[Rfam]
RNA sequence: AUAAAUGCAAUGACGAGAAGAGUAAGUUAAAGGAAACUGGCAGAGAGAAGUCUCCAUUGGGUGUAAGAGACUUUGAGUUGAAAUUAACAGAAGUGCAUCUCUGAGCACUGAAUUGAAGCCUAGUAGACUUCAGCGGGUACGCCCGUUAAAGCGUUGAGGUAUUGUUGUACCAAAAGAGUUGUUAUGUACUUAUGAUUACUUAUUUGUACAUAAUAAACAGAGUGGAACCGUGGAAGUUAUGCUUCUGCCUCUGUA
Dot-bracket structure: ......((......((((.......(((((..................((((((............))))))...........))))).........))))...))..((((((...........)).)))).(((......)))...................................(((((((((................)))))))))....((((.......(((((((.....)))))))))))...
Rfam assigns this 255-nucleotide RNA from Clostridium aciditolerans to the family "T-box leader".
A search with the family's covariance model found it, with a score of 97 bits.
It is annotated as a cis-regulatory leader.
From the family's description: Uncharged tRNA acts as the effector for transcription antitermination of genes in the T-box leader family. T-boxes are found upstream of many aminoacyl-tRNA synthetase genes and some amino acid biosynthetic genes usually in Gram-positive bacteria.
Rfam links the family to the GO term tRNA binding.